The family of this 61-nucleotide RNA sequence from Xiphophorus maculatus is "U7 small nuclear RNA". A search with the family's covariance model found it, with a score of 37 bits. Rfam describes the family as follows. Animal histone pre-mRNAs are spliced by a different mechanism than nuclear pre-mRNAs and self-splicing introns.
[Rfam]
RNA sequence: UAAUGUUUGCAUCUUUUUAAGACUUUAUAGUUGGUGUUCAGAUUUUAAUCUGAACACCAAU
Numbered sequence: 001u002a003a004u005g006u007u008u009g010c011a012u013c014u015u016u017u018u019a020a021g022a023c024u025u026u027a028u029a030g031u032u033g034g035u036g037u038u039c040a041g042a043u044u045u046u047a048a049u050c051u052g053a054a055c056a057c058c059a060a061u
Stems, first nucleotide, its partner, number of pairs: 033058011